A member of the RNA family "tRNA" from Mycoplasma wenyonii, 85 nucleotides long.
The family's RNA type in Rfam is transfer RNA.
The organism belongs to Mycoplasma wenyonii, within Bacteria.
RNA sequence: GCGUUUAUGGCGGAAUUGGCAGACGCGCUAGCCUUAGGAGCUAGUAUCUUAGAAAGAUGUGUGGGUUCGAUCCCCUCUAAACGCA
Numbered sequence: 001g002c003g004u005u006u007a008u009g010g011c012g013g014a015a016u017u018g019g020c021a022g023a024c025g026c027g028c029u030a031g032c033c034u035u036a037g038g039a040g041c042u043a044g045u046a047u048c049u050u051a052g053a054a055a056g057a058u059g060u061g062u063g064g065g066u067u068c069g070a071u072c073c074c075c076u077c078u079a080a081a082c083g084c085a
Stems, first nucleotide, its partner, number of pairs: 001084007010026003028044005061077001063075003